Notes
A member of the RNA family "Group II catalytic intron D1-D4-3", 173 nucleotides long. It is one of the family's seed sequences. The pairing is the family consensus, mapped onto this sequence. From the family's description: Group II introns are found in rRNA, tRNA and mRNA of organelles in fungi, plants and protists, and also in mRNA in bacteria. Rfam links the family to the GO term Group II intron splicing.
RNA sequence: GCCGCCGCAAGGCGGGGUCUGAAGGAAGCUGGAGGCAAAGCUGCGGCCCGACGAACAGCAACCGCAUACGAGGCGGCGUCGCGUGGGCGAGAGGGCCAAGAGACUCGAAGCCCGAUGUCAUCCGGAACGCGGCGGCGUAGAUGCGGCGGGUAUGUGCAGCGAAGGUCACGCGU
Numbered sequence: 001g002c003c004g005c006c007g008c009a010a011g012g013c014g015g016g017g018u019c020u021g022a023a024g025g026a027a028g029c030u031g032g033a034g035g036c037a038a039a040g041c042u043g044c045g046g047c048c049c050g051a052c053g054a055a056c057a058g059c060a061a062c063c064g065c066a067u068a069c070g071a072g073g074c075g076g077c078g079u080c081g082c083g084u085g086g087g088c089g090a091g092a093g094g095g096c097c098a099a100g101a102g103a104c105u106c107g108a109a110g111c112c113c114g115a116u117g118u119c120a121u122c123c124g125g126a127a128c129g130c131g132g133c134g135g136c137g138u139a140g141a142u143g144c145g146g147c148g149g150g151u152a153u154g155u156g157c158a159g160c161g162a163a164g165g166u167c168a169c170g171c172g173u
Stems, first nucleotide, its partner, number of pairs: 002015005028173002032169001035166002040160006046151005062146006073138003077134007085113004091106003